[Rfam]
RNA: Flavo-1 RNA
Organism: Flavobacterium branchiophilum
RNA sequence: GUUGUGCUGCGUGAGGGAUAGCAGUGGAAAUCCUUUUUUGGCCCUUUUUUUUGGGCCAAAAAAGAUUGAAACGAAUAGCCCGACCCGAA
Dot-bracket structure: ..............(((.((...((...((((..((((((((((........)))))))))).))))...))...)).)))........